[Rfam]
A member of the RNA family "atoC RNA" from Trichlorobacter lovleyi, 90 nucleotides long. Rfam's curators put it in the seed alignment. The source organism's lineage runs through Bacteria, Thermodesulfobacteriota, Desulfuromonadia, Geobacterales and Trichlorobacter lovleyi. Rfam classes the family as a cis-regulatory element. The base pairs follow the family's consensus structure, which is taken from published work.
RNA sequence: AGUACACUAUUAGUAGAGAAUAUGUUUGCGAGCCCCCUCGGGGGUCUCAUCGCCCUCGUUGCCGCCCCUCCUGGUGACGGGGGCUUUUUU
Numbered sequence: 001a002g003u004a005c006a007c008u009a010u011u012a013g014u015a016g017a018g019a020a021u022a023u024g025u026u027u028g029c030g031a032g033c034c035c036c037c038u039c040g041g042g043g044g045u046c047u048c049a050u051c052g053c054c055c056u057c058g059u060u061g062c063c064g065c066c067c068c069u070c071c072u073g074g075u076g077a078c079g080g081g082g083g084c085u086u087u088u089u090u
Stems, first nucleotide, its partner, number of pairs: 030048003034044003052084012